[Rfam]
RNA sequence: GUGUAUCUGAAAGGAGGUGAUCCAGUGUCUCAUUGUCAUCAAUCGCGAGCGGCCGCGACCUGGACCUCGUUGGAGGCCCGGGCCUGAUCCUUUCAGGCAAGGUUACGAUCGCACCGCGAUCAGACAAUGAAGGGCCGUCGCAGCGAUGCGGCGGCCC
Numbered sequence: 001g002u003g004u005a006u007c008u009g010a011a012a013g014g015a016g017g018u019g020a021u022c023c024a025g026u027g028u029c030u031c032a033u034u035g036u037c038a039u040c041a042a043u044c045g046c047g048a049g050c051g052g053c054c055g056c057g058a059c060c061u062g063g064a065c066c067u068c069g070u071u072g073g074a075g076g077c078c079c080g081g082g083c084c085u086g087a088u089c090c091u092u093u094c095a096g097g098c099a100a101g102g103u104u105a106c107g108a109u110c111g112c113a114c115c116g117c118g119a120u121c122a123g124a125c126a127a128u129g130a131a132g133g134g135c136c137g138u139c140g141c142a143g144c145g146a147u148g149c150g151g152c153g154g155c156c157c
Stems, first nucleotide, its partner, number of pairs: 016023002031129007044063001047060001050057002065076004079107002081103001083102003090096001109119004132157011
caulobacter sRNA CC2171: a 157-nucleotide sequence from Novosphingobium sp. The match comes from Rfam's covariance-model search (90 bits). The source organism's lineage runs through Bacteria, Pseudomonadati, Pseudomonadota, Sphingomonadales and Novosphingobium.